The family of this 73-nucleotide RNA sequence is "RAGATH-18 RNA". From the family's description: Actinobacteria, Firmicutes, Fusobacteria, Thermotogae (1 example). It is annotated as a small RNA. The sequence is in the family's curated seed alignment.
RNA sequence: ACUGUGGAGUGUACAGGGACCUGCGAGUAGUGUGCUGCCUGCAGCCACAAAAGUAUACACGGUGAAGCAGUAA
Dot-bracket structure: (((((...(((((........(((.....(((((.......))..)))....))))))))......)))))..